[Rfam]
RNA sequence: CUUGUGCGGCGGCACGGCCAUGUCAUUUCCCCAUGUUGCUCAUGACUGCGUGGUCUUUUGACCUCUUCACGCGGUCGUUUUGAGUGUCAGGCCGUGUCCUGAGCGAUUUCGGACAUCUUAGUACCCUCUUUCCUCUCUGCUACUAUUGCAGCGAGGAUGGGUCGGCAGUUCGUACAAAU
Numbered sequence: 001c002u003u004g005u006g007c008g009g010c011g012g013c014a015c016g017g018c019c020a021u022g023u024c025a026u027u028u029c030c031c032c033a034u035g036u037u038g039c040u041c042a043u044g045a046c047u048g049c050g051u052g053g054u055c056u057u058u059u060g061a062c063c064u065c066u067u068c069a070c071g072c073g074g075u076c077g078u079u080u081u082g083a084g085u086g087u088c089a090g091g092c093c094g095u096g097u098c099c100u101g102a103g104c105g106a107u108u109u110c111g112g113a114c115a116u117c118u119u120a121g122u123a124c125c126c127u128c129u130u131u132c133c134u135c136u137c138u139g140c141u142a143c144u145a146u147u148g149c150a151g152c153g154a155g156g157a158u159g160g161g162u163c164g165g166c167a168g169u170u171c172g173u174a175c176a177a178a179u
Stems, first nucleotide, its partner, number of pairs: 022098001024096003038085005049073004110172005127160002130157001132156004137151002
The family of this 179-nucleotide RNA from Macrolepiota fuliginosa is "small nucleolar RNA snR35". The family is grouped with related families in Rfam's "SNORA13 clan". The match comes from Rfam's covariance-model search (47 bits). It is annotated as an H/ACA-box small nucleolar RNA.